mir-9242 microRNA precursor family: a 64-nucleotide RNA sequence from Myotis myotis.
Lineage of the source: Eukaryota > Metazoa > Gnathostomata > Teleostomi > Myotis.
The family's consensus secondary structure was predicted with RNAalifold.

[Rfam]
RNA sequence: GGCCUCCCUCUGCAGGGCAAUCCAUUGUGAGGCUCUGUGAUGGAUUGCCCAACAGAGGGAGGCC
Dot-bracket structure: ((((((((((((..(((((((((((((((......)))))))))))))))..))))))))))))